The record is a 128-nucleotide RNA from Ruegeria sp. ANG-R, which matches "Ruegeria cis8 sRNA" in Rfam. Rfam classes the family as a small RNA.
RNA sequence: ACCGCCAGCACCUUGGCGAUGUAGGGGAUCAGCGGCAGGUUCAGGAUCAGCAACACGAGGUUGCCGAUGAACAUCGACAUGAUGACCGCCCAGAAGAUCUGUGGCUCAUCAAUCAUCAGACGCGGGCC
Dot-bracket structure: ..((((((....)))))).......((.((..((.(.(((..(.((.(.(((........(((........((((.....))))......)))......))).).)).)..)))....).)).)).))
Numbered sequence: 001a002c003c004g005c006c007a008g009c010a011c012c013u014u015g016g017c018g019a020u021g022u023a024g025g026g027g028a029u030c031a032g033c034g035g036c037a038g039g040u041u042c043a044g045g046a047u048c049a050g051c052a053a054c055a056c057g058a059g060g061u062u063g064c065c066g067a068u069g070a071a072c073a074u075c076g077a078c079a080u081g082a083u084g085a086c087c088g089c090c091c092a093g094a095a096g097a098u099c100u101g102u103g104g105c106u107c108a109u110c111a112a113u114c115a116u117c118a119g120a121c122g123c124g125g126g127c128c
Stems, first nucleotide, its partner, number of pairs: 003018006026128002029125002033122002036119001038114003043109001045107002048104001050102003061093003072084004

Annotation: The organism belongs to Ruegeria, within Bacteria.